[Rfam]
The family of this 158-nucleotide RNA sequence is "RT-2 RNA". The sequence is in the family's curated seed alignment.

RNA sequence: GGGUGUAAAUCCCUAAAACUGCCCGCUGACGGCCUUACACGGACGCUGCUUGCAUGGCGGGGUAUUGCGCUAUCCCCGUUUCAUGUGUCGGGCCAAAGUAGUUUAGACGCGCACCAACAAGACAACUAUGCGGAGGGCGAAUAAAAAUAUUAUGACCA
Numbered sequence: 001g002g003g004u005g006u007a008a009a010u011c012c013c014u015a016a017a018a019c020u021g022c023c024c025g026c027u028g029a030c031g032g033c034c035u036u037a038c039a040c041g042g043a044c045g046c047u048g049c050u051u052g053c054a055u056g057g058c059g060g061g062g063u064a065u066u067g068c069g070c071u072a073u074c075c076c077c078g079u080u081u082c083a084u085g086u087g088u089c090g091g092g093c094c095a096a097a098g099u100a101g102u103u104u105a106g107a108c109g110c111g112c113a114c115c116a117a118c119a120a121g122a123c124a125a126c127u128a129u130g131c132g133g134a135g136g137g138c139g140a141a142u143a144a145a146a147a148u149a150u151u152a153u154g155a156c157c158a
Stems, first nucleotide, its partner, number of pairs: 001012004021138004026133003030130001031094005037088004045053002056080007098129005104124001106115001